Shown here is a 61-nucleotide RNA sequence from Pristionchus pacificus, a member of the family "mir-8364 microRNA precursor family".

RNA sequence: UCUUCAUUGCUUGUACUCUCUUACCGGUCAGAGAGGCGAGAGAGUGUAUGAAAUGAAGAGA
Dot-bracket structure: (((((((..(.((((((.((((...............)))).)))))).)..)))))))..
Taxonomically the source falls in Pristionchus (Eukaryota, Opisthokonta, Protostomia, Nematoda).